About this RNA:
The family of this 126-nucleotide sequence from Myotis myotis is "Small nucleolar RNA SNORA28". It scores 114 bits against the family's covariance model. ACA28 is a member of the H/ACA class of snoRNA that guide the sites of modification of uridines to pseudouridines. The base pairs follow the family's consensus structure, which was predicted with RNAfold. A reference for the family is Huttenhofer et al. (2001), "RNomics: an experimental approach that identifies 201 candidates for novel, small, non-messenger RNAs in mouse", EMBO J. The family is grouped with related families in Rfam's "SNORA28 clan".
[Rfam]
RNA sequence: AAGCAAUGCUCUGUGGCAGAUGAUCAAAACUGUCUGACAUAAUUUGAGCUUGCUAUAGCAACAAAGUCUAACCUAUUCCAGUGUUCUCUCCUCUACGAGACUAUCCAUUACAUAGACUUAGUGUAA
Numbered sequence: 001a002a003g004c005a006a007u008g009c010u011c012u013g014u015g016g017c018a019g020a021u022g023a024u025c026a027a028a029a030c031u032g033u034c035u036g037a038c039a040u041a042a043u044u045u046g047a048g049c050u051u052g053c054u055a056u057a058g059c060a061a062c063a064a065a066g067u068c069u070a071a072c073c074u075a076u077u078c079c080a081g082u083g084u085u086c087u088c089u090c091c092u093c094u095a096c097g098a099g100a101c102u103a104u105c106c107a108u109u110a111c112a113u114a115g116a117c118u119u120a121g122u123g124u125a126a
Stems, first nucleotide, its partner, number of pairs: 009048003012041004017036006064119007074112001076110001081105001087100004